[Rfam]
RNA sequence: UAUCAUCAUUUAGAAUCCCUUGAGUGGGAUAGCAACCAGCGAUAACAAGCAACGGUGCUAAAGCAAUGAGCCUUUAAAAGGAAAAAAAGUGUUAUAA
Numbered sequence: 001u002a003u004c005a006u007c008a009u010u011u012a013g014a015a016u017c018c019c020u021u022g023a024g025u026g027g028g029a030u031a032g033c034a035a036c037c038a039g040c041g042a043u044a045a046c047a048a049g050c051a052a053c054g055g056u057g058c059u060a061a062a063g064c065a066a067u068g069a070g071c072c073u074u075u076a077a078a079a080g081g082a083a084a085a086a087a088a089g090u091g092u093u094a095u096a097a
Stems, first nucleotide, its partner, number of pairs: 006069005015030005031059003036055002039050002044092001071081004
A member of the RNA family "SAM-I/IV (S-adenosyl methionine) riboswitch aptamer" from Christiangramia salexigens, 97 nucleotides long. Rfam 15.1 lists 567 matches to the family in 508 species. A reference for the family is Weinberg et al. (2008), "The aptamer core of SAM-IV riboswitches mimics the ligand-binding site of SAM-I riboswitches", RNA.